Shown here is a 103-nucleotide RNA from Durio zibethinus, a member of the family "MIR398 microRNA precursor family". The source organism's lineage runs through Eukaryota, Streptophyta, Streptophytina, Malvales and Durio. The family's consensus secondary structure was predicted with WAR. A search with the family's covariance model found it, with a score of 77 bits. The family has 14 seed sequences and 627 matches in Rfam 15.1. Gene Ontology terms of the family: miRNA-mediated post-transcriptional gene silencing and RISC complex.

RNA sequence: AGGAGCCCAACAGGAGCGACAUGAGAUCACAUUUGGUCAGUUCUAGAUGAAAACCUUAUCCACUGUCUUUGAUGUGUUCUCAGGUCGCCCCUGUAGGGCUUCC
Numbered sequence: 001a002g003g004a005g006c007c008c009a010a011c012a013g014g015a016g017c018g019a020c021a022u023g024a025g026a027u028c029a030c031a032u033u034u035g036g037u038c039a040g041u042u043c044u045a046g047a048u049g050a051a052a053a054c055c056u057u058a059u060c061c062a063c064u065g066u067c068u069u070u071g072a073u074g075u076g077u078u079c080u081c082a083g084g085u086c087g088c089c090c091c092u093g094u095a096g097g098g099c100u101u102c103c
Base pairs, nucleotide, nucleotide: 007097008096011093012092013091014090016088017087018086019085023081024080025079026078028076029075030074031073032072